Background: narK RNA: a 75-nucleotide RNA sequence from Janthinobacterium sp. CG3. Rfam's curators put it in the seed alignment. It is annotated as a cis-regulatory element.

RNA sequence: GGCACGCUCCUUGCUGAAUAUGAACUAACGGUGGCGGCCAAUGGCGGUGGCCACCGUCCAAGACAAAGGCGUCUU
Numbered sequence: 001g002g003c004a005c006g007c008u009c010c011u012u013g014c015u016g017a018a019u020a021u022g023a024a025c026u027a028a029c030g031g032u033g034g035c036g037g038c039c040a041a042u043g044g045c046g047g048u049g050g051c052c053a054c055c056g057u058c059c060a061a062g063a064c065a066a067a068g069g070c071g072u073c074u075u
Base pairs, nucleotide, nucleotide: 033052034051035050037048038047039046